This 75-nucleotide sequence from Chelonia mydas belongs to the Rfam family "Mammalian CPEB3 ribozyme". Pairs were carried over by alignment from the consensus structure, which is taken from published work. Lineage of the source: Eukaryota > Opisthokonta > Vertebrata > Gnathostomata > Chelonia.
Nucleotides: 075
Stems, first nucleotide, its partner, number of pairs: 014044005020075001022073004027039003050064006
Number, partner (000 for none) and nucleotide at each position: 001000c002000a003000a004000u005000c006000u007000u008000g009000a010000u011000g012000c013000a014044g015043g016042g017041c018040u019000u020075a021000a022073c023072a024071g025070g026000a027039g028038c029037c030000u031000u032000c033000a034000u035000g036000u037029g038028g039027c040018a041017g042016c043015c044014c045000c046000c047000u048000g049000u050064c051063a052062g053061c054060c055059u056000u057000a058000a059055a060054g061053g062052c063051u064050g065000u066000a067000a068000a069000a070025u071024c072023u073022g074000c075020u